Rfam assigns this 228-nucleotide RNA sequence from Miscanthus lutarioriparius to the family "MIR6217 microRNA precursor family". The family's consensus secondary structure was predicted with RNAalifold. Lineage of the source: Eukaryota > Streptophytina > Petrosaviidae > Panicoideae > Miscanthus.
RNA sequence: AGGCUAUAAAAUAACUUAUUCUAUGGCCACUUUGAGUUACGAUAAUUACUAUGUUAAUUCACGAGAUUAUAGUAACUCCUUACUAUGUGAUUUACUAUAAUGUUAUGGUAAAUAUCCUCAUAUGUUAUAGUAACACAACUAUCGUAAAUAUGUAUUCACUUUAUUGUAAAUUAGUAUAUAAAAUUAUCGUAAAUGGAGGUGGCUACAGAAUAACUUAUUCUAUGACCA
Numbered sequence: 001a002g003g004c005u006a007u008a009a010a011a012u013a014a015c016u017u018a019u020u021c022u023a024u025g026g027c028c029a030c031u032u033u034g035a036g037u038u039a040c041g042a043u044a045a046u047u048a049c050u051a052u053g054u055u056a057a058u059u060c061a062c063g064a065g066a067u068u069a070u071a072g073u074a075a076c077u078c079c080u081u082a083c084u085a086u087g088u089g090a091u092u093u094a095c096u097a098u099a100a101u102g103u104u105a106u107g108g109u110a111a112a113u114a115u116c117c118u119c120a121u122a123u124g125u126u127a128u129a130g131u132a133a134c135a136c137a138a139c140u141a142u143c144g145u146a147a148a149u150a151u152g153u154a155u156u157c158a159c160u161u162u163a164u165u166g167u168a169a170a171u172u173a174g175u176a177u178a179u180a181a182a183a184u185u186a187u188c189g190u191a192a193a194u195g196g197a198g199g200u201g202g203c204u205a206c207a208g209a210a211u212a213a214c215u216u217a218u219u220c221u222a223u224g225a226c227c228a
Stems, first nucleotide, its partner, number of pairs: 002227002005224004010219005016213007024205010037192011050178010061167002065165003069161001072157001074155001080147004087142003091138002093132011107117002